[Rfam]
RNA sequence: GUCCGUGAACUGAGGGGAAAUAGUCUCCCCCUUCAGAUCCGGCGGCGGCAUUGCCGCUUCAUCACAACACUGCAAGGAG
Numbered sequence: 001g002u003c004c005g006u007g008a009a010c011u012g013a014g015g016g017g018a019a020a021u022a023g024u025c026u027c028c029c030c031c032u033u034c035a036g037a038u039c040c041g042g043c044g045g046c047g048g049c050a051u052u053g054c055c056g057c058u059u060c061a062u063c064a065c066a067a068c069a070c071u072g073c074a075a076g077g078a079g
Stems, first nucleotide, its partner, number of pairs: 003042003007039002010036008
Notes
L20-Deltaproteobacteria ribosomal protein leader: a 79-nucleotide RNA sequence. On this family, see Eckert and Weinberg, BMC Microbiol 2020: "Discovery of 20 novel ribosomal leader candidates in bacteria and archaea". The family's RNA type in Rfam is cis-regulatory leader. Rfam's curators put it in the seed alignment.